[Rfam]
RNA: Wolbachia sRNA 46
RNA sequence: UUUGGGUCUACCAAGAGGGUGUCAUCCCAGUGCCCAGACACUGGGAUCCAGCAAAAUUGAUUGUAAACAAGCGCACUAUACAACAUUUUCGAUCAAAACCUGGAUUCCAGUGUCAAGCACUGGAAUGACAACAAGAGAGGGUAAUG
Numbered sequence: 001u002u003u004g005g006g007u008c009u010a011c012c013a014a015g016a017g018g019g020u021g022u023c024a025u026c027c028c029a030g031u032g033c034c035c036a037g038a039c040a041c042u043g044g045g046a047u048c049c050a051g052c053a054a055a056a057u058u059g060a061u062u063g064u065a066a067a068c069a070a071g072c073g074c075a076c077u078a079u080a081c082a083a084c085a086u087u088u089u090c091g092a093u094c095a096a097a098a099c100c101u102g103g104a105u106u107c108c109a110g111u112g113u114c115a116a117g118c119a120c121u122g123g124a125a126u127g128a129c130a131a132c133a134a135g136a137g138a139g140g141g142u143a144a145u146g
Stems, first nucleotide, its partner, number of pairs: 011141002020130006027123007037114015